[Rfam]
RNA sequence: GUAGUGCUGUAGUAGUACAAUAGUGCUGAGUAGUACAGCACUACUCAGCACUACUGUACUACUACAGCACUAC
Numbered sequence: 001g002u003a004g005u006g007c008u009g010u011a012g013u014a015g016u017a018c019a020a021u022a023g024u025g026c027u028g029a030g031u032a033g034u035a036c037a038g039c040a041c042u043a044c045u046c047a048g049c050a051c052u053a054c055u056g057u058a059c060u061a062c063u064a065c066a067g068c069a070c071u072a073c
Stems, first nucleotide, its partner, number of pairs: 001073003005069003010066001011063008022052012
Background
Rfam assigns this 73-nucleotide RNA sequence from Cyphomyrmex costatus to the family "mir-16 microRNA precursor family". Clan: mir-15 clan. Gene Ontology terms of the family: RISC complex and miRNA-mediated post-transcriptional gene silencing. The family has 14 seed sequences and 4,705 matches in Rfam 15.1. On this family, see Calin et al., Proc Natl Acad Sci U S A 2002: "Frequent deletions and down-regulation of micro- RNA genes miR15 and miR16 at 13q14 in chronic lymphocytic leukemia".